[Rfam]
RNA sequence: CAAAAGGAAAACUAGGGUUCCGGCUUUCUUUCUUCGAGGAAGGAGCGUCUGGUCCAAGAGUUUUCGGCCUCCCAUAACGAGGCUCCACGGAGGGAUAAAAACCCGGGAGAU
Numbered sequence: 001c002a003a004a005a006g007g008a009a010a011a012c013u014a015g016g017g018u019u020c021c022g023g024c025u026u027u028c029u030u031u032c033u034u035c036g037a038g039g040a041a042g043g044a045g046c047g048u049c050u051g052g053u054c055c056a057a058g059a060g061u062u063u064u065c066g067g068c069c070u071c072c073c074a075u076a077a078c079g080a081g082g083c084u085c086c087a088c089g090g091a092g093g094g095a096u097a098a099a100a101a102c103c104c105g106g107g108a109g110a111u
Stems, first nucleotide, its partner, number of pairs: 007065006015055002020052002022049001023046005066084006086106001088109001092104003

This 111-nucleotide RNA from Nitrospira sp. belongs to the Rfam family "Guanidine-I riboswitch aptamer". Pairs were carried over by alignment from the consensus structure.